[Rfam]
About this RNA:
Plastid-psbA-1 3UTR RNA: a 131-nucleotide sequence. The base pairs follow the family's consensus structure, which was predicted with LocARNA. The family's RNA type in Rfam is cis-regulatory element. From the family's description: Plastid psbA-1 is a non-coding RNA (ncRNA) present in plastids. It was identified in inverted repeat sequences in the 3 prime untranslate region (3UTR) of photosystem II quinone-binding protein (psbA). Rfam's curators put it in the seed alignment. On this family, see Richter et al., Plant Commun 2023: "Retrograde signaling in plants: A critical review focusing on the GUN pathway and beyond".

RNA sequence: GUAGAAGUUCCAUCUACAAAUGGAUAAGACUUCUAUAUUAUAUUAGUGUAUACGAGUUUUUGAAAAUGAAAAAUAAAGGAGCAAUAAUAAACCUCUUGAUAUAACAAGAGGUUUAUUAUUGCUCCUUUAUU
Dot-bracket structure: ........(((((......)))))..................................................(((((((((((((.(((.(((((........))))).))).)))))))))))))...